Shown here is a 176-nucleotide RNA sequence from Geosporobacter ferrireducens, a member of the family "Lysine riboswitch aptamer".

[Rfam]
RNA sequence: AUUCAUGAUAGAGGUGUGCCUGACAAGAGUAGGCAUGGGGAGGUUUUAGAGAAGCCUGAAAUCCAUGUUGAAAGGGGAGGGCACCGAAGGGUGAAUUGACUCUACAAUUCAUGCCUGGUUCCAGGGUUAAGAGCUCUGUGACUGUCACCAAAACCUGGUGGAGUGCUAUCUUGUUU
Numbered sequence: 001a002u003u004c005a006u007g008a009u010a011g012a013g014g015u016g017u018g019c020c021u022g023a024c025a026a027g028a029g030u031a032g033g034c035a036u037g038g039g040g041a042g043g044u045u046u047u048a049g050a051g052a053a054g055c056c057u058g059a060a061a062u063c064c065a066u067g068u069u070g071a072a073a074g075g076g077g078a079g080g081g082c083a084c085c086g087a088a089g090g091g092u093g094a095a096u097u098g099a100c101u102c103u104a105c106a107a108u109u110c111a112u113g114c115c116u117g118g119u120u121c122c123a124g125g126g127u128u129a130a131g132a133g134c135u136c137u138g139u140g141a142c143u144g145u146c147a148c149c150a151a152a153a154c155c156u157g158g159u160g161g162a163g164u165g166c167u168a169u170c171u172u173g174u175u176u
Base pairs, nucleotide, nucleotide: 007170008169009168010167011166016084017083018082019081020080021079024076032069033068034067035066036065037064038063039062088116089115090114091112092111093110094109095108096107097106098105117143118142119141120140122138123137124136125135126134127133145161146160147159148158149157150156

Record summary
From the family's description: Riboswitches are metabolite binding domains within certain messenger RNAs that serve as precision sensors for their corresponding targets.